A member of the RNA family "mir-8834 microRNA precursor family" from Nyctereutes procyonoides, 106 nucleotides long. Taxonomically the source falls in Nyctereutes (Eukaryota, Eumetazoa, Teleostomi, Boreoeutheria).

RNA sequence: AGGAGGAACAACCCCAGUGGCGGCGGACAGCUCUGGAGCCCUGGAGUCAGCUCCCGCAGUGGCUACAGAGCUCUCUGUGUGCAGGGCCUGGAUGCUCCGGGGACGG
Numbered sequence: 001a002g003g004a005g006g007a008a009c010a011a012c013c014c015c016a017g018u019g020g021c022g023g024c025g026g027a028c029a030g031c032u033c034u035g036g037a038g039c040c041c042u043g044g045a046g047u048c049a050g051c052u053c054c055c056g057c058a059g060u061g062g063c064u065a066c067a068g069a070g071c072u073c074u075c076u077g078u079g080u081g082c083a084g085g086g087c088c089u090g091g092a093u094g095c096u097c098c099g100g101g102g103a104c105g106g
Stems, first nucleotide, its partner, number of pairs: 002098004007093001009090002012086003020078004025074002029072007037064001041059003

Pairs were carried over by alignment from the consensus structure, which was predicted with RNAalifold.